[Rfam]
RNA sequence: GAUUCGGAUAGAGGCGCGGUACUCAUGCGUAUCAAAAAGCAUUCGGCCAGGCAGCCGGCUUUUUGAGAGAGGGUGUACCGCCGAAGGGAGUCGGACCUGCCUGGGCCGUCCCCCUGGGCCGCGGGAGAAUAUCUUGCGGACUGUCACAAGCACGUGGAGCGCUAUCCUGCCG
Numbered sequence: 001g002a003u004u005c006g007g008a009u010a011g012a013g014g015c016g017c018g019g020u021a022c023u024c025a026u027g028c029g030u031a032u033c034a035a036a037a038a039g040c041a042u043u044c045g046g047c048c049a050g051g052c053a054g055c056c057g058g059c060u061u062u063u064u065g066a067g068a069g070a071g072g073g074u075g076u077a078c079c080g081c082c083g084a085a086g087g088g089a090g091u092c093g094g095a096c097c098u099g100c101c102u103g104g105g106c107c108g109u110c111c112c113c114c115u116g117g118g119c120c121g122c123g124g125g126a127g128a129a130u131a132u133c134u135u136g137c138g139g140a141c142u143g144u145c146a147c148a149a150g151c152a153c154g155u156g157g158a159g160c161g162c163u164a165u166c167c168u169g170c171c172g
Stems, first nucleotide, its partner, number of pairs: 006167006016081007024073001032066008085115004090110001092108003096104001116142002119139008144157004
A member of the RNA family "Lysine riboswitch aptamer" from Flintibacter faecis, 172 nucleotides long.
Lineage of the source: Bacteria > Bacillati > Clostridia > Eubacteriales > Flintibacter.
Pairs were carried over by alignment from the consensus structure, which is taken from published work.